A member of the RNA family "LOOT RNA", 121 nucleotides long. The base pairs follow the family's consensus structure, which is taken from published work.
[Rfam]
RNA sequence: UGCCUAAACCUAUAAAUCUUAUGGGCAUGGCAAAAAAGACUGUGUGAACAAUACUGAACCCGUCGUUCAGGCCUCUGUUCACACAGCUGUAUAUCGAAAGAUAUACGGGAGCGCAAGCUUC
Number, nucleotide and partner (000 for none) at each position: 001u032002g031003c030004c029005u000006a000007a000008a000009c025010c024011u023012a022013u021014a020015a019016a000017u000018c000019u015020u014021a013022u012023g011024g010025g009026c000027a000028u000029g004030g003031c002032a001033a000034a000035a000036a000037a000038g000039a000040c086041u085042g084043u083044g082045u081046g080047a079048a078049c077050a076051a000052u000053a000054c070055u069056g068057a067058a066059c000060c000061c000062g000063u000064c000065g000066u058067u057068c056069a055070g054071g000072c000073c000074u000075c000076u050077g049078u048079u047080c046081a045082c044083a043084c042085a041086g040087c000088u107089g106090u105091a104092u103093a102094u101095c100096g000097a000098a000099a000100g095101a094102u093103a092104u091105a090106c089107g088108g121109g120110a119111g118112c117113g000114c000115a000116a000117g112118c111119u110120u109121c108